[Rfam]
RNA: skipping-rope RNA
RNA sequence: AAAGAUAGAGGUGAAUAAUCUGUCGCUCAUGGGUUGAAAGAUUGCAGAUGUAGGAGAUGGCAGUCCUACCUAUCUUU
Number, nucleotide and partner (000 for none) at each position: 001a077002a076003a075004g074005a073006u072007a071008g070009a000010g000011g030012u029013g028014a027015a000016u000017a000018a000019u000020c063021u062022g061023u060024c059025g000026c000027u014028c013029a012030u011031g000032g045033g000034u000035u000036g000037a000038a000039a000040g000041a000042u000043u000044g000045c032046a000047g000048a000049u000050g069051u068052a067053g066054g065055a000056g000057a000058u000059g024060g023061c022062a021063g020064u000065c054066c053067u052068a051069c050070c008071u007072a006073u005074c004075u003076u002077u001